[Rfam]
RNA sequence: GAUAUGCGAUGAUGCCGGAGGUGGCGCUUGAUUCAAAGCGGGAAUUUCGGCGGAGUAUGUCCGAUUUUAAACCGGGCGA
Number, nucleotide and partner (000 for none) at each position: 001g000002a000003u000004a000005u000006g000007c000008g000009a000010u000011g000012a000013u000014g051015c050016c049017g000018g048019a047020g046021g045022u000023g000024g000025c040026g039027c038028u037029u036030g000031a000032u000033u000034c000035a000036a029037a028038g027039c026040g025041g000042g000043a000044a000045u021046u020047u019048c018049g016050g015051c014052g000053g000054a000055g000056u000057a000058u000059g000060u079061c078062c000063g000064a000065u076066u075067u074068u000069a000070a000071a000072c000073c000074g067075g066076g065077c000078g061079a060
RNA: S10-Clostridia ribosomal protein leader